Shown here is a 417-nucleotide sequence from gamma proteobacterium IMCC1989, a member of the family "Bacterial RNase P class A". By type it is a ribozyme. Its family is annotated with ribonuclease P activity, dimeric ribonuclease P complex and tRNA processing in the Gene Ontology.
RNA sequence: GGAGUUGGCUCGGCAAUCGCUUUAUGUUUUGCUUGGGUGUUCAUUUUGAUUAUUCAAACUGGUCACCUAAGGCGGCACUAAGAGGAAAGUCCGGGCUCCAUAGGGUAGAGUGCCAGGUAACCUCUGGGGGGCGCGAGCCUACGGAAAGUGCAGCAGAAAAUAAACCGCCUGCUAUUUAUAGUCGGUAAGGGUGAAAUGGUGCGGUAAGAGCGCACCGCGCAACUGGUAACAGUUUGUGGCAUGGUAAACCCCACUCGGAGCAAGAUCAAAUAGGAAUCCAUUUGCUCAAGGCUUAGGCUUUUUGUAUAAGGCGUGAUCCGCGUUGGAUUCGGGUAGAUUGCUUAAGAUGUAUGGUGACAUGCAUCGUAGAUGAAUGAUUGUCCACGACAGAACCCGGCUUACAGGCCAACUCCAAUU
Numbered sequence: 001g002g003a004g005u006u007g008g009c010u011c012g013g014c015a016a017u018c019g020c021u022u023u024a025u026g027u028u029u030u031g032c033u034u035g036g037g038u039g040u041u042c043a044u045u046u047u048g049a050u051u052a053u054u055c056a057a058a059c060u061g062g063u064c065a066c067c068u069a070a071g072g073c074g075g076c077a078c079u080a081a082g083a084g085g086a087a088a089g090u091c092c093g094g095g096c097u098c099c100a101u102a103g104g105g106u107a108g109a110g111u112g113c114c115a116g117g118u119a120a121c122c123u124c125u126g127g128g129g130g131g132c133g134c135g136a137g138c139c140u141a142c143g144g145a146a147a148g149u150g151c152a153g154c155a156g157a158a159a160a161u162a163a164a165c166c167g168c169c170u171g172c173u174a175u176u177u178a179u180a181g182u183c184g185g186u187a188a189g190g191g192u193g194a195a196a197u198g199g200u201g202c203g204g205u206a207a208g209a210g211c212g213c214a215c216c217g218c219g220c221a222a223c224u225g226g227u228a229a230c231a232g233u234u235u236g237u238g239g240c241a242u243g244g245u246a247a248a249c250c251c252c253a254c255u256c257g258g259a260g261c262a263a264g265a266u267c268a269a270a271u272a273g274g275a276a277u278c279c280a281u282u283u284g285c286u287c288a289a290g291g292c293u294u295a296g297g298c299u300u301u302u303u304g305u306a307u308a309a310g311g312c313g314u315g316a317u318c319c320g321c322g323u324u325g326g327a328u329u330c331g332g333g334u335a336g337a338u339u340g341c342u343u344a345a346g347a348u349g350u351a352u353g354g355u356g357a358c359a360u361g362c363a364u365c366g367u368a369g370a371u372g373a374a375u376g377a378u379u380g381u382c383c384a385c386g387a388c389a390g391a392a393c394c395c396g397g398c399u400u401a402c403a404g405g406c407c408a409a410c411u412c413c414a415a416u417u
Base pairs, nucleotide, nucleotide: 001413002412003411004410005409006408007407008406009405010404012382013381014380015379016378017377018376020082021081022080025077026076027075028074087400088399089398091397092396093395094394095393096260097259098258099257103318104317106315108256109255110254111253112252113127114126115125116124117123128142129140130139131138132137143251144250148249149248150245151244165190166189167186168185169184171182172181173180174179198216199215200214201213202212203211217240218238219237220236221235222234223232224231225230264339265338266337267336274330275329276328277327278326279325309323311321312320313319346365347364348363349362350361351360352359353358